[Rfam]
RNA sequence: CAGCGGGACACCUCUCCCCAACGAGAGGCAUCUAUCUGGAAGGAUACCAUGU
Numbered sequence: 001c002a003g004c005g006g007g008a009c010a011c012c013u014c015u016c017c018c019c020a021a022c023g024a025g026a027g028g029c030a031u032c033u034a035u036c037u038g039g040a041a042g043g044a045u046a047c048c049a050u051g052u
Stems, first nucleotide, its partner, number of pairs: 011028006033046005

A member of the RNA family "serC leader" from Cereibacter sphaeroides, 52 nucleotides long. The source organism's lineage runs through Bacteria, Pseudomonadota, Alphaproteobacteria, Paracoccaceae and Cereibacter sphaeroides. Its family is annotated with regulation of gene expression in the Gene Ontology. This family is a putative regulatory RNA structure that is found upstream of the serC-serA operon in some alpha-proteobacteria. The final stem of the structure overlaps the ribosome binding site of the serC reading frame.